This 35-nucleotide RNA belongs to the Rfam family "DUF805b RNA". It is annotated as a cis-regulatory element. The base pairs follow the family's consensus structure, which is taken from published work.
[Rfam]
RNA sequence: AAUGGAAUUUCCGAAAACCAUCAAAAGAGUAGGAA
Numbered sequence: 001a002a003u004g005g006a007a008u009u010u011c012c013g014a015a016a017a018c019c020a021u022c023a024a025a026a027g028a029g030u031a032g033g034a035a
Stems, first nucleotide, its partner, number of pairs: 002021004010034003